[Rfam]
RNA sequence: CCAAAGGCUCUUUUUAGAGCCAUCCACAUCUUCUAUGAAAAGCAG
Numbered sequence: 001c002c003a004a005a006g007g008c009u010c011u012u013u014u015u016a017g018a019g020c021c022a023u024c025c026a027c028a029u030c031u032u033c034u035a036u037g038a039a040a041a042g043c044a045g
Stems, first nucleotide, its partner, number of pairs: 006021006
Dot-bracket structure: .....((((((....))))))........................